The family of this 139-nucleotide RNA sequence from Pedionomus torquatus is "Small nucleolar RNA SNORA47".
For this family Rfam cites "RNomics: an experimental approach that identifies 201 candidates for novel, small, non-messenger RNAs in mouse" (Huttenhofer et al., EMBO J, 2001).
[Rfam]
RNA sequence: UGGAGGACUGAGAAGGUAAGACAGUUAAACUUUAUGCUGUAUCUUACUGGUUAUAGCCUCCAAAAUUAUAAUAGCGCAACUGCAACUCACGUUCCCCUCUUGACAUGAGGGAAAGCAAUGCUGCAUUUGCACAUAAUGC
Numbered sequence: 001u002g003g004a005g006g007a008c009u010g011a012g013a014a015g016g017u018a019a020g021a022c023a024g025u026u027a028a029a030c031u032u033u034a035u036g037c038u039g040u041a042u043c044u045u046a047c048u049g050g051u052u053a054u055a056g057c058c059u060c061c062a063a064a065a066u067u068a069u070a071a072u073a074g075c076g077c078a079a080c081u082g083c084a085a086c087u088c089a090c091g092u093u094c095c096c097c098u099c100u101u102g103a104c105a106u107g108a109g110g111g112a113a114a115g116c117a118a119u120g121c122u123g124c125a126u127u128u129g130c131a132c133a134u135a136a137u138g139c
Base pairs, nucleotide, nucleotide: 002061003060004059005058006057015048016047017046018045019042021040022039023038024037025036081131082130083129090123091122098117099115100114101113104111
The family has 20 seed sequences and 733 matches in Rfam 15.1.